[Rfam]
Source information: Rfam assigns this 132-nucleotide RNA from Kocuria dechangensis to the family "SAM (S-adenosyl methionine) riboswitch aptamer". Pairs were carried over by alignment from the consensus structure, which is taken from published work.
Nucleotides: 132
Base pairs, nucleotide, nucleotide: 001077002076003075004074009040011039012038013037014036015035016034022031023030041064042063043062046060047059048058050055080121081120082119083118084117085116086115087114088113
Number, partner (000 for none) and nucleotide at each position: 001077c002076u003075u004074c005000a006000c007000g008000a009040g010000a011039c012038g013037u014036g015035g016034c017000c018000g019000c020000g021000a022031a023030g024000c025000u026000c027000c028000g029000a030023c031022u032000g033000g034016g035015c036014c037013a038012c039011g040009c041064a042063c043062c044000a045000a046060c047059c048058c049000c050055g051000u052000g053000c054000u055050c056000a057000u058048g059047g060046g061000u062043g063042g064041u065000u066000c067000g068000g069000a070000u071000g072000a073000g074004g075003a076002a077001g078000c079000g080121g081120c082119c083118c084117g085116c086115a087114u088113c089000c090000c091000g092000g093000c094000u095000g096000u097000g098000g099000c100000g101000c102000a103000g104000c105000c106000g107000g108000u109000g110000a111000c112000c113088g114087a115086u116085g117084c118083g119082g120081g121080u122000a123000a124000g125000a126000g127000c128000a129000a130000g131000c132000g
Clan: SAM clan.
Lineage of the source: Bacteria > Bacillati > Actinomycetota > Actinomycetes > Kocuria.